[Rfam]
RNA sequence: CUAAAUUAGUGCAAAAUAGCGCUCAUGCAAAAUAACCGACGCCUAAACGCGCCGGUUAUUUUUUUGC
Numbered sequence: 001c002u003a004a005a006u007u008a009g010u011g012c013a014a015a016a017u018a019g020c021g022c023u024c025a026u027g028c029a030a031a032a033u034a035a036c037c038g039a040c041g042c043c044u045a046a047a048c049g050c051g052c053c054g055g056u057u058a059u060u061u062u063u064u065u066g067c
Base pairs, nucleotide, nucleotide: 011022012021033058034057035056036055037054038053040051041050

Description: A member of the RNA family "Enterobacterial sRNA STnc240", 67 nucleotides long.